[Rfam]
RNA sequence: CUUACUUGUGUGUGGAUGGUGCUCAUUACCAAGGACAGGUGUGUUCACCUGUGUGUGGACCAUUUUCAACAUUAGGGACAGAGUUGUUUAUAU
Numbered sequence: 001c002u003u004a005c006u007u008g009u010g011u012g013u014g015g016a017u018g019g020u021g022c023u024c025a026u027u028a029c030c031a032a033g034g035a036c037a038g039g040u041g042u043g044u045u046c047a048c049c050u051g052u053g054u055g056u057g058g059a060c061c062a063u064u065u066u067c068a069a070c071a072u073u074a075g076g077g078a079c080a081g082a083g084u085u086g087u088u089u090a091u092a093u
Base pairs, nucleotide, nucleotide: 004084005083006082007080008079009078017074018073019072020071021070023068025066028063033054035052036051037050038049039048040047041046
RNA: mir-2060 microRNA precursor family